RNA sequence: UAACCCUUUUCGUGAGGAAAGGCUGAGCGGUCAGAAGUCAGCAGACGCCAUAGUACUCAAGUAGGGGACGCCUGAAAGAGGAAGGGC
Numbered sequence: 001u002a003a004c005c006c007u008u009u010u011c012g013u014g015a016g017g018a019a020a021g022g023c024u025g026a027g028c029g030g031u032c033a034g035a036a037g038u039c040a041g042c043a044g045a046c047g048c049c050a051u052a053g054u055a056c057u058c059a060a061g062u063a064g065g066g067g068a069c070g071c072c073u074g075a076a077a078g079a080g081g082a083a084g085g086g087c
Stems, first nucleotide, its partner, number of pairs: 001025002005022007037046003047087003056080003
Shown here is an 87-nucleotide RNA sequence from Paenactinomyces guangxiensis, a member of the family "Group II catalytic intron D1-D4-1". Group II introns are found in rRNA, tRNA and mRNA of organelles in fungi, plants and protists, and also in mRNA in bacteria. Taxonomically the source falls in Paenactinomyces (Bacteria, Bacillota, Bacilli, Thermoactinomycetaceae). On this family, see Bonen and Vogel, Trends Genet 2001: "The ins and outs of group II introns". The pairing is the family consensus, mapped onto this sequence.